A member of the RNA family "Manganese Mn2+ riboswitch aptamer (yybP-ykoY)" from Methylibium petroleiphilum, 186 nucleotides long. The base pairs follow the family's consensus structure. Rfam's curators write: This RNA was originally discovered in E. coli during a large scale screen and was named SraF. The family was later found to exist upstream of related families of protein genes in many bacteria, including the the yybP and ykoK genes in B. subtilis. The specific functions of these proteins are unknown, but this structured RNA element may be involved in their genetic regulation as a riboswitch. Rfam 15.1 lists 1,126 matches to the family in 1,062 species. Lineage of the source: Bacteria > Betaproteobacteria > Sphaerotilaceae > Methylibium > Methylibium petroleiphilum.
[Rfam]
RNA sequence: AAUCGCGGCUCCCACCCGUCAUCGGGGAGUAGCCGCCCUGCAUCCGUUGCAGGGGCUCGCGUCAACACACUUGGCCUGCAGGCCAUGGUGCGAGCAGCUUCCACAGCCUGGCAAGACCUUUGACCGCACAGCCUCCGCGUGGCCGGAGAGGCCGUGUGGUCAUUGCGUCAUCCGGCCCAGGACCUC
Numbered sequence: 001a002a003u004c005g006c007g008g009c010u011c012c013c014a015c016c017c018g019u020c021a022u023c024g025g026g027g028a029g030u031a032g033c034c035g036c037c038c039u040g041c042a043u044c045c046g047u048u049g050c051a052g053g054g055g056c057u058c059g060c061g062u063c064a065a066c067a068c069a070c071u072u073g074g075c076c077u078g079c080a081g082g083c084c085a086u087g088g089u090g091c092g093a094g095c096a097g098c099u100u101c102c103a104c105a106g107c108c109u110g111g112c113a114a115g116a117c118c119u120u121u122g123a124c125c126g127c128a129c130a131g132c133c134u135c136c137g138c139g140u141g142g143c144c145g146g147a148g149a150g151g152c153c154g155u156g157u158g159g160u161c162a163u164u165g166c167g168u169c170a171u172c173c174g175g176c177c178c179a180g181g182a183c184c185u186c
Base pairs, nucleotide, nucleotide: 036054037053038052055095056094057093058092059091060090061089062088063087064086072085073084074083075082076081096185097184099182100181101180